[Rfam]
RNA sequence: CUUGGUGGGAUCGCAGCAAUGGGGGCUACUCGCGAGGCCCUUGUGGUCGUUUCGCCCUCGGGAAGGUCUGAGUUCGAGCCCUCGUACCCACCUAGCAGGAGGGUGCCCAUCAUACGGGCAGCGAGGCAACAGAAAAAAGCGAGUCAGUCCGGCCACCAGUCCUGGGACUCAUGAGGACAUGCCAGGCUGCACUCGAUGGGAGAGUCUCGUGGCUGGCAAUUUGAGUUAAAUAGCUGUGGUGCGCUCUGACGGGUGCAUAACUCAAUUCAGACUAGUCCUUGCCAAG
Numbered sequence: 001c002u003u004g005g006u007g008g009g010a011u012c013g014c015a016g017c018a019a020u021g022g023g024g025g026c027u028a029c030u031c032g033c034g035a036g037g038c039c040c041u042u043g044u045g046g047u048c049g050u051u052u053c054g055c056c057c058u059c060g061g062g063a064a065g066g067u068c069u070g071a072g073u074u075c076g077a078g079c080c081c082u083c084g085u086a087c088c089c090a091c092c093u094a095g096c097a098g099g100a101g102g103g104u105g106c107c108c109a110u111c112a113u114a115c116g117g118g119c120a121g122c123g124a125g126g127c128a129a130c131a132g133a134a135a136a137a138a139g140c141g142a143g144u145c146a147g148u149c150c151g152g153c154c155a156c157c158a159g160u161c162c163u164g165g166g167a168c169u170c171a172u173g174a175g176g177a178c179a180u181g182c183c184a185g186g187c188u189g190c191a192c193u194c195g196a197u198g199g200g201a202g203a204g205u206c207u208c209g210u211g212g213c214u215g216g217c218a219a220u221u222u223g224a225g226u227u228a229a230a231u232a233g234c235u236g237u238g239g240u241g242c243g244c245u246c247u248g249a250c251g252g253g254u255g256c257a258u259a260a261c262u263c264a265a266u267u268c269a270g271a272c273u274a275g276u277c278c279u280u281g282c283c284a285a286g
Stems, first nucleotide, its partner, number of pairs: 001286004007280003012238006021059005036048004068270005077214004087103003091099002104120005121210007140195005239258007
RNA: Nuclear RNase P